[Rfam]
A member of the RNA family "Small nucleolar RNA SNORD70" from Apaloderma vittatum, 88 nucleotides long. For this family Rfam cites "RNomics: an experimental approach that identifies 201 candidates for novel, small, non-messenger RNAs in mouse" (Huttenhofer et al., EMBO J, 2001). By type it is a C/D-box small nucleolar RNA. The source organism's lineage runs through Eukaryota, Bilateria, Euteleostomi, Tetrapoda and Apaloderma. Rfam's curators write: snoRNA HBII-234 belongs to the C/D family of snoRNAs. It is the human orthologue of the mouse MBII-234 and is predicted to guide 2'O-ribose methylation of the small 18S rRNA on position A512. It is hosted, together with HBII-95, by the core C/D box snoRNA protein encoding gene NOP5/NOP58. The match comes from Rfam's covariance-model search (62 bits).
RNA sequence: AAGCCUGUUGUCAAUGAUGUAACGUAGUUAAGCUGAAAUUAAUGAUUUAAUUCACUUCCUUCGUCACUACCACUGAGACAACAGAUGA
Numbered sequence: 001a002a003g004c005c006u007g008u009u010g011u012c013a014a015u016g017a018u019g020u021a022a023c024g025u026a027g028u029u030a031a032g033c034u035g036a037a038a039u040u041a042a043u044g045a046u047u048u049a050a051u052u053c054a055c056u057u058c059c060u061u062c063g064u065c066a067c068u069a070c071c072a073c074u075g076a077g078a079c080a081a082c083a084g085a086u087g088a
Stems, first nucleotide, its partner, number of pairs: 003086001005084008
Rfam links the family to the GO terms RNA processing and nucleolus.